[Rfam]
RNA sequence: GCCGAUUUAGCUCAGUUGGGAGAGCGUCAGACUGAAGAUCUGAAGGUCGUGUGUUCAAUCCACACAAUCGGCA
Numbered sequence: 001g002c003c004g005a006u007u008u009a010g011c012u013c014a015g016u017u018g019g020g021a022g023a024g025c026g027u028c029a030g031a032c033u034g035a036a037g038a039u040c041u042g043a044a045g046g047u048c049g050u051g052u053g054u055u056c057a058a059u060c061c062a063c064a065c066a067a068u069c070g071g072c073a
Stems, first nucleotide, its partner, number of pairs: 001072007010025004027043005049065005